[Rfam]
RNA sequence: GAUGGUUCUCAGGGGACAUGCCCUGGAAUUGGGCUCCCUCCUCUCUGGUUCUGGUGUGUCACCAAAGAACCGCA
Numbered sequence: 001g002a003u004g005g006u007u008c009u010c011a012g013g014g015g016a017c018a019u020g021c022c023c024u025g026g027a028a029u030u031g032g033g034c035u036c037c038c039u040c041c042u043c044u045c046u047g048g049u050u051c052u053g054g055u056g057u058g059u060c061a062c063c064a065a066a067g068a069a070c071c072g073c074a
Stems, first nucleotide, its partner, number of pairs: 003072001005070005012063002015060003019056002023054001025052009